Shown here is an 86-nucleotide RNA sequence from Pelusios castaneus, a member of the family "mir-15 microRNA precursor family". Rfam links the family to the GO terms RISC complex and miRNA-mediated post-transcriptional gene silencing. About the family: This family represents the related mir-15a and mir-15b sequences. In humans miR-15a and miR-16 are clustered within 0.5 kb at 13q14. This region has been shown to be deleted in more than half of B cell chronic lymphocytic leukaemias (CLL). The family is grouped with related families in Rfam's "mir-15 clan".
Nucleotides: 086
Stems, first nucleotide, its partner, number of pairs: 001086006013074012026061011
Number, partner (000 for none) and nucleotide at each position: 001086u002085c003084a004083g005082g006081u007000c008000a009000g010000g011000c012000u013074g014073u015072a016071a017070c018069a019068g020067c021066a022065a023064a024063u025000c026061a027060a028059a029058a030057u031056a032055g033054g034053u035052g036051u037000u038000a039000c040000a041000c042000c043000u044000a045000u046000u047000a048000c049000u050000a051036a052035c053034a054033c055032c056031u057030a058029u059028u060027u061026u062000g063024a064023u065022u066021u067020g068019c069018u070017g071016u072015u073014a074013c075000a076000g077000c078000c079000u080000g081006a082005c083004c084003u085002g086001a